[Rfam]
Saccharopolyspora sRNA 350: a 509-nucleotide RNA sequence from Streptomyces albus. Gene Ontology term of the family: regulation of secondary metabolite biosynthetic process. The organism belongs to Streptomyces, within Bacteria.
RNA sequence: GUGAGGGUGUGCUCCCAGGUGCCGCUCUCGCCCGUCAGCCGGUCGUCGCCGAGGAAGUCGCCGUCCGCCAGGACACCGUGGGUGGUCUCCUCGUCGUACCGGCCGCGCGCGGUCCUGCGCAGCUUGCCGUGGGCGAUGAGCACCAGCCGGUCGGCGGGCUGCCCCUCCCGCACGAUGACCUCGCCCGGUCCGAAAUCGCGCUGCUCGCACCGGGACGCGAGGGCCUCGAGCACCUCCCGGUCCUCGUAGCCGCGCAGGGCCGGCAGUUCGGAGAGUUCCAGCGGGAUGACGCGGACCUCGGAGCCGGUGGAGACGAAUUCCACCCUGCCGUCCCCCAGGGUGUGGCUGAGGCGCCGGUUGACCCGGAAAGUACCGCCGGUCACCUGGACCCAGGGCAGCACCUUGAGCAGCCACCGGGAGGUGAUGCCCUGCAUCUGCGGAGGGGUUUUGGUGGUGGUCGCGAGAUUCCGGGCCGCCGCUGUCGCGAGGCUCUGCUGCGCCUGCGCCGG
Numbered sequence: 001g002u003g004a005g006g007g008u009g010u011g012c013u014c015c016c017a018g019g020u021g022c023c024g025c026u027c028u029c030g031c032c033c034g035u036c037a038g039c040c041g042g043u044c045g046u047c048g049c050c051g052a053g054g055a056a057g058u059c060g061c062c063g064u065c066c067g068c069c070a071g072g073a074c075a076c077c078g079u080g081g082g083u084g085g086u087c088u089c090c091u092c093g094u095c096g097u098a099c100c101g102g103c104c105g106c107g108c109g110c111g112g113u114c115c116u117g118c119g120c121a122g123c124u125u126g127c128c129g130u131g132g133g134c135g136a137u138g139a140g141c142a143c144c145a146g147c148c149g150g151u152c153g154g155c156g157g158g159c160u161g162c163c164c165c166u167c168c169c170g171c172a173c174g175a176u177g178a179c180c181u182c183g184c185c186c187g188g189u190c191c192g193a194a195a196u197c198g199c200g201c202u203g204c205u206c207g208c209a210c211c212g213g214g215a216c217g218c219g220a221g222g223g224c225c226u227c228g229a230g231c232a233c234c235u236c237c238c239g240g241u242c243c244u245c246g247u248a249g250c251c252g253c254g255c256a257g258g259g260c261c262g263g264c265a266g267u268u269c270g271g272a273g274a275g276u277u278c279c280a281g282c283g284g285g286a287u288g289a290c291g292c293g294g295a296c297c298u299c300g301g302a303g304c305c306g307g308u309g310g311a312g313a314c315g316a317a318u319u320c321c322a323c324c325c326u327g328c329c330g331u332c333c334c335c336c337a338g339g340g341u342g343u344g345g346c347u348g349a350g351g352c353g354c355c356g357g358u359u360g361a362c363c364c365g366g367a368a369a370g371u372a373c374c375g376c377c378g379g380u381c382a383c384c385u386g387g388a389c390c391c392a393g394g395g396c397a398g399c400a401c402c403u404u405g406a407g408c409a410g411c412c413a414c415c416g417g418g419a420g421g422u423g424a425u426g427c428c429c430u431g432c433a434u435c436u437g438c439g440g441a442g443g444g445g446u447u448u449u450g451g452u453g454g455u456g457g458u459c460g461c462g463a464g465a466u467u468c469c470g471g472g473c474c475g476c477c478g479c480u481g482u483c484g485c486g487a488g489g490c491u492c493u494g495c496u497g498c499g500c501c502u503g504c505g506c507c508g509g
Base pairs, nucleotide, nucleotide: 006390007389008388010386011385016327018325019324020322021321024318026316027315035311036310038308039307040306045305047303049301050300051299052298054233058229059228060227063224064223065111066109067108068107077101078100080099082097083096084095085094086093118221120219123217127212129210130209131206132205133204134203135202138199140197142196148192149191153189155187156186157185158184159183160178164174166172235295236294237293240290241289242288244286245285251281254278256277257276260271261270262269329342330341331340332339352378353377355375356374357373361371362370391431392430393429394428395427396426397425399423400422401421403418404417407415437476438475439474440473444469445468447465448464449463451461452460477508478507479503481501483499484498485497487496488495